[Rfam]
RNA sequence: GCCGAGCUCAGUCACGAGAGCUUGUCACCCAUGUGGGGGCAUCGAAGGUGGUGUGGAUGUUUGGUGCGAACUCUGGACCUGGCCUGUGUUGUAACAUUGAUGGCCUGCCCGGUCCAAGUUGGUAGUGGGCUGGGGGGCUGAUGCGAAAGCUUUGGCCUCUCUGUCCCUGAAGUGGCAGGCACCGCGUUAGGCUGGAUUCACAGAGCAGCGCUCACUGUCCUCUUCCAACAGUGGAAGGAUAACAGGCCGCUGCACCAUGGGCCCGCUCUGGUUCAGAGUUCUUCCACAACAGACCACCAUCUUU
Numbered sequence: 001g002c003c004g005a006g007c008u009c010a011g012u013c014a015c016g017a018g019a020g021c022u023u024g025u026c027a028c029c030c031a032u033g034u035g036g037g038g039g040c041a042u043c044g045a046a047g048g049u050g051g052u053g054u055g056g057a058u059g060u061u062u063g064g065u066g067c068g069a070a071c072u073c074u075g076g077a078c079c080u081g082g083c084c085u086g087u088g089u090u091g092u093a094a095c096a097u098u099g100a101u102g103g104c105c106u107g108c109c110c111g112g113u114c115c116a117a118g119u120u121g122g123u124a125g126u127g128g129g130c131u132g133g134g135g136g137g138c139u140g141a142u143g144c145g146a147a148a149g150c151u152u153u154g155g156c157c158u159c160u161c162u163g164u165c166c167c168u169g170a171a172g173u174g175g176c177a178g179g180c181a182c183c184g185c186g187u188u189a190g191g192c193u194g195g196a197u198u199c200a201c202a203g204a205g206c207a208g209c210g211c212u213c214a215c216u217g218u219c220c221u222c223u224u225c226c227a228a229c230a231g232u233g234g235a236a237g238g239a240u241a242a243c244a245g246g247c248c249g250c251u252g253c254a255c256c257a258u259g260g261g262c263c264c265g266c267u268c269u270g271g272u273u274c275a276g277a278g279u280u281c282u283u284c285c286a287c288a289a290c291a292g293a294c295c296a297c298c299a300u301c302u303u304u
Base pairs, nucleotide, nucleotide: 001040002039003038004023005022006021007020008019009018028037029036030035044304045303046302047301048300049299050298051297052296053295055294058291059290060288062286063285064284066282068280070279071278072277073276074275075274076273077272078271079270081263082262083261084260085259086258087257091255092254095252096251101249102248103247104246105245106244107243109238110237113235114234115233116232118229119228120227121226122225124223125222127166128165129164130163132161133160134159135158136157137156138155139154140153141152143150144149167172174219175218176217177216178215184211185210186209187208192203193202194201
RNA: Plant signal recognition particle RNA
Organism: Triticum aestivum